[Rfam]
Shown here is a 68-nucleotide RNA, a member of the family "int-alpA RNA". Acidobacteria (1 example), Planctomycetes (1 example), Proteobacteria. Pairs were carried over by alignment from the consensus structure, which is taken from published work. A search with the family's covariance model found it, with a score of 46 bits.
RNA sequence: AGCCGGGCUAGGUUGAUCCCCGAAAAGCCGUAAACCCUGCGGCCUGCCCGGUCUUUUUUAUUCUGGGG
Numbered sequence: 001a002g003c004c005g006g007g008c009u010a011g012g013u014u015g016a017u018c019c020c021c022g023a024a025a026a027g028c029c030g031u032a033a034a035c036c037c038u039g040c041g042g043c044c045u046g047c048c049c050g051g052u053c054u055u056u057u058u059u060a061u062u063c064u065g066g067g068g
Stems, first nucleotide, its partner, number of pairs: 002052007011021002027043004035068005